[Rfam]
RNA sequence: UAGGGCUCCCUUUACUGACGGAUGAGUGGGAUAAACCACGGGGAAGGGGAAGCCGACAAAUGCCGACCGUCUGGGCAACACCG
Numbered sequence: 001u002a003g004g005g006c007u008c009c010c011u012u013u014a015c016u017g018a019c020g021g022a023u024g025a026g027u028g029g030g031a032u033a034a035a036c037c038a039c040g041g042g043g044a045a046g047g048g049g050a051a052g053c054c055g056a057c058a059a060a061u062g063c064c065g066a067c068c069g070u071c072u073g074g075g076c077a078a079c080a081c082c083g
Stems, first nucleotide, its partner, number of pairs: 004054004009049004015043002017071005026039004061077004
Shown here is an 83-nucleotide RNA sequence from Ligaoa zhengdingensis, a member of the family "ZMP/ZTP riboswitch aptamer (pfl RNA motif)".